[Rfam]
RNA sequence: UAGAGCUUGGACGAGGAUGUGCAACUGCGGUACGGUAGGACCUUCAGCUACGACCGGCAGCUGCACAUCCAUGCCCAAGCUCUA
Numbered sequence: 001u002a003g004a005g006c007u008u009g010g011a012c013g014a015g016g017a018u019g020u021g022c023a024a025c026u027g028c029g030g031u032a033c034g035g036u037a038g039g040a041c042c043u044u045c046a047g048c049u050a051c052g053a054c055c056g057g058c059a060g061c062u063g064c065a066c067a068u069c070c071a072u073g074c075c076c077a078a079g080c081u082c083u084a
Stems, first nucleotide, its partner, number of pairs: 001084010012073002015070009025060004029055003033052002036050003
MIR9776 microRNA precursor family: an 84-nucleotide RNA from Triticum aestivum. Lineage of the source: Eukaryota > Liliopsida > Poaceae > Triticodae > Triticum.